[Rfam]
RNA: Ribosomal protein L20 leader
RNA sequence: UUGGUAAAGAAGAAACGGCCGUUUCUCACCUUACGGUUAUGCUGUAUGGUCAAGGAUUCAUGGAUUUAUCAAUGAGUUUUGAGGACGGUUCAUACCGUCCUUUUUUAUUAUC
Numbered sequence: 001u002u003g004g005u006a007a008a009g010a011a012g013a014a015a016c017g018g019c020c021g022u023u024u025c026u027c028a029c030c031u032u033a034c035g036g037u038u039a040u041g042c043u044g045u046a047u048g049g050u051c052a053a054g055g056a057u058u059c060a061u062g063g064a065u066u067u068a069u070c071a072a073u074g075a076g077u078u079u080u081g082a083g084g085a086c087g088g089u090u091c092a093u094a095c096c097g098u099c100c101u102u103u104u105u106u107a108u109u110a111u112c
Stems, first nucleotide, its partner, number of pairs: 011026006028050003033045002035042001084099006